[Rfam]
RNA sequence: UAUUCUUAUAUCGUAUUCACUCAUAUAAUAGCGAAAAUAUGGUUCGCAAGUUUCUACCGGUUUGCCUUAAACAAGCCGACUAUGAGUGGCAAUGAAGAAAAA
Dot-bracket structure: .................((((((((...(.(((((.......))))).)........(((((((.......)))))))..))))))))..............

Record summary: Rfam assigns this 102-nucleotide RNA from Virgibacillus phasianinus to the family "Purine riboswitch aptamer". Gene Ontology term of the family: purine nucleobase biosynthetic process. The organism belongs to Virgibacillus, within Bacteria. The base pairs follow the family's consensus structure, which is taken from published work. Clan: Purine riboswitches.